[Rfam]
RNA sequence: UCCCUCAGUGUUGAAACAAUCUCUGCUGAACCAGAUUCUAAAAGUUCACUGGAGUUUGUUUCAACAUUGCAAGAA
Numbered sequence: 001u002c003c004c005u006c007a008g009u010g011u012u013g014a015a016a017c018a019a020u021c022u023c024u025g026c027u028g029a030a031c032c033a034g035a036u037u038c039u040a041a042a043a044g045u046u047c048a049c050u051g052g053a054g055u056u057u058g059u060u061u062c063a064a065c066a067u068u069g070c071a072a073g074a075a
Base pairs, nucleotide, nucleotide: 003073005071006069007068008067009066010065011064012063013062014061015060016059017058018057019056021054022053023052024051025050027048028047029046030045031044